[Rfam]
RNA sequence: UGCAUCUGUGAUGAAAAUUUGGCUCCCUCAACUGAAGGAAAUGAGGAGAAUGGCCUUUACCGUUACCCAGAUCUUCUGAGAUGUA
Number, nucleotide and partner (000 for none) at each position: 001u085002g084003c083004a082005u081006c080007u000008g000009u000010g000011a000012u000013g000014a000015a000016a000017a000018u000019u000020u000021g000022g000023c000024u000025c000026c000027c000028u000029c000030a000031a000032c000033u000034g000035a000036a000037g000038g000039a000040a000041a000042u000043g000044a000045g000046g000047a000048g000049a000050a000051u000052g000053g000054c000055c000056u000057u000058u000059a000060c000061c000062g000063u000064u000065a000066c000067c000068c000069a000070g000071a000072u000073c000074u000075u000076c000077u000078g000079a000080g006081a005082u004083g003084u002085a001

The record is an 85-nucleotide RNA from Mesitornis unicolor, which matches "Small nucleolar RNA SNORD100" in Rfam. Its Rfam clan is "SNORD100 clan". The organism belongs to Mesitornis, within Eukaryota.